[Rfam]
RNA sequence: GUCUCGUACUAAGUAGCGCUGCCGCAUCCUCUGAUGCUGCAGCGCUACUUAGUGCGAGAC
Numbered sequence: 001g002u003c004u005c006g007u008a009c010u011a012a013g014u015a016g017c018g019c020u021g022c023c024g025c026a027u028c029c030u031c032u033g034a035u036g037c038u039g040c041a042g043c044g045c046u047a048c049u050u051a052g053u054g055c056g057a058g059a060c
Base pairs, nucleotide, nucleotide: 001060002059003058004057005056006055007054010051011050012049013048014047015046016045017044018043019042024037025036026035027034028033
This 60-nucleotide RNA sequence from Chara braunii belongs to the Rfam family "mir-252 microRNA precursor family".
Its Rfam clan is "mir-252 microRNA precursor family".
Rfam links the family to the GO terms RISC complex and miRNA-mediated post-transcriptional gene silencing.
The literature on the family includes a 2009 paper in BMC Genomics by Li et al., "Direct sequencing and expression analysis of a large number of miRNAs in Aedes aegypti and a multi-species survey of novel mosquito miRNAs".